[Rfam]
Nucleotides: 122
Stems, first nucleotide, its partner, number of pairs: 015113002019109003023105001034088001038084004045055002062077006
Number, partner (000 for none) and nucleotide at each position: 001000g002000u003000a004000u005000c006000g007000a008000g009000u010000a011000a012000a013000u014000c015113g016112u017000a018000a019109a020108g021107g022000a023105u024000g025000a026000g027000a028000a029000c030000c031000g032000u033000a034088g035000a036000g037000g038084u039083u040082c041081g042000a043000g044000u045055c046054g047000a048000g049000c050000a051000g052000c053000g054046c055045g056000a057000g058000a059000c060000a061000a062077c063076a064075u065074c066073g067072c068000g069000u070000g071000a072067g073066c074065g075064a076063u077062g078000g079000c080000c081041c082040g083039g084038a085000g086000g087000g088034c089000g090000a091000g092000g093000c094000g095000a096000a097000g098000c099000c100000g101000a102000g103000u104000u105023a106000u107021c108020c109019u110000g111000c112016a113015c114000g115000a116000c117000c118000c119000a120000c121000c122000a
This 122-nucleotide sequence from Chania multitudinisentens belongs to the Rfam family "RtT RNA".
The base pairs follow the family's consensus structure, which is taken from published work.
The family has 57 seed sequences and 651 matches in Rfam 15.1.
From the family's description: This family represents a bacterial cis-regulatory element known as RtT RNA. The exact function of RtT is unknown although it is thought that it may be involved in changing the cellular response in relation to amino acid starvation.
Taxonomically the source falls in Chania multitudinisentens (Bacteria, Pseudomonadota, Yersiniaceae, Chania).
By type it is a cis-regulatory element.